[Rfam]
A member of the RNA family "Hovlinc ribozyme (hominin vlincRNA-located)" from Vicugna pacos, 167 nucleotides long.

RNA sequence: GCUUGGACCAAGCCCAGGAAUAAGGUACCUCAGAACUGGAUGGGCCGUGUGCUUAACCAGGACAAGAUCUCCUUCUCUCCAACGUUGUUGCCAACUCAUGAUUCUCCUAACCUGUGCUUGGAGAGACGUGGACCCAGAGUCAGAGGACCUCUGACUUCCACUGCUAG
Numbered sequence: 001g002c003u004u005g006g007a008c009c010a011a012g013c014c015c016a017g018g019a020a021u022a023a024g025g026u027a028c029c030u031c032a033g034a035a036c037u038g039g040a041u042g043g044g045c046c047g048u049g050u051g052c053u054u055a056a057c058c059a060g061g062a063c064a065a066g067a068u069c070u071c072c073u074u075c076u077c078u079c080c081a082a083c084g085u086u087g088u089u090g091c092c093a094a095c096u097c098a099u100g101a102u103u104c105u106c107c108u109a110a111c112c113u114g115u116g117c118u119u120g121g122a123g124a125g126a127c128g129u130g131g132a133c134c135c136a137g138a139g140u141c142a143g144a145g146g147a148c149c150u151c152u153g154a155c156u157u158c159c160a161c162u163g164c165u166a167g
Stems, first nucleotide, its partner, number of pairs: 011165003017159002025157001030154005046087002052137002060073002074126006096110001098108001100106002111146003115142002118139002
On this family, see Chen et al., Nat Chem Biol 2021: "Hovlinc is a recently evolved class of ribozyme found in human lncRNA". The base pairs follow the family's consensus structure, which is taken from published work. Its family is annotated with catalytic activity in the Gene Ontology.